[Rfam]
RNA: Histone 3' UTR stem-loop
RNA sequence: AAAAAGGUCUUUCUCAAGACCAUUAUUUAUUCUCAUAUAAUUUAUAU
Numbered sequence: 001a002a003a004a005a006g007g008u009c010u011u012u013c014u015c016a017a018g019a020c021c022a023u024u025a026u027u028u029a030u031u032c033u034c035a036u037a038u039a040a041u042u043u044a045u046a047u
Stems, first nucleotide, its partner, number of pairs: 006021006